This 352-nucleotide RNA from Motilimonas pumila belongs to the Rfam family "transfer-messenger RNA". Lineage of the source: Bacteria > Pseudomonadati > Pseudomonadota > Alteromonadales > Motilimonas. Rfam classes the family as a non-coding RNA gene.
[Rfam]
RNA sequence: GGGGCUGAUUUAGGAUUCGACGGGAUUCACGAAACCCAAGGUGCAUGCCGAGGUGCGGCUGGCCUCGUAAAAAGCCGCAAAGUUAUAGUUGCAAACGACGAUAACUACGCUCUAGCAGCUUAGGCUAGCUAGCCUUCCUCCCACGUCUCUUCUAUGGGCAGGGUUCAGGAAGGUCAUCAACAUAGAAUAGCGAGGGAAACUUGUCUGAGGUUGAACCGCGAAACAGUAUCAGGCUCGCCAUCUUAAAUCCUGUUAGUCGGAGUUAAGCUGGUUAACCAAAAGACUAACUAAGCAUGUAGUACCUAGGAUGUAGGCUUUUCGGACGGGGGUUCAAAUCCCCCCAGCUCCACCA
Numbered sequence: 001g002g003g004g005c006u007g008a009u010u011u012a013g014g015a016u017u018c019g020a021c022g023g024g025a026u027u028c029a030c031g032a033a034a035c036c037c038a039a040g041g042u043g044c045a046u047g048c049c050g051a052g053g054u055g056c057g058g059c060u061g062g063c064c065u066c067g068u069a070a071a072a073a074g075c076c077g078c079a080a081a082g083u084u085a086u087a088g089u090u091g092c093a094a095a096c097g098a099c100g101a102u103a104a105c106u107a108c109g110c111u112c113u114a115g116c117a118g119c120u121u122a123g124g125c126u127a128g129c130u131a132g133c134c135u136u137c138c139u140c141c142c143a144c145g146u147c148u149c150u151u152c153u154a155u156g157g158g159c160a161g162g163g164u165u166c167a168g169g170a171a172g173g174u175c176a177u178c179a180a181c182a183u184a185g186a187a188u189a190g191c192g193a194g195g196g197a198a199a200c201u202u203g204u205c206u207g208a209g210g211u212u213g214a215a216c217c218g219c220g221a222a223a224c225a226g227u228a229u230c231a232g233g234c235u236c237g238c239c240a241u242c243u244u245a246a247a248u249c250c251u252g253u254u255a256g257u258c259g260g261a262g263u264u265a266a267g268c269u270g271g272u273u274a275a276c277c278a279a280a281a282g283a284c285u286a287a288c289u290a291a292g293c294a295u296g297u298a299g300u301a302c303c304u305a306g307g308a309u310g311u312a313g314g315c316u317u318u319u320c321g322g323a324c325g326g327g328g329g330u331u332c333a334a335a336u337c338c339c340c341c342c343a344g345c346u347c348c349a350c351c352a
Stems, first nucleotide, its partner, number of pairs: 001348007021321005028314001034309001036307002039304004044296005049067005054079007112132005118126001133173006141163002145159004150187006190219003203235001205233002237272004242267005248261003252288007325341005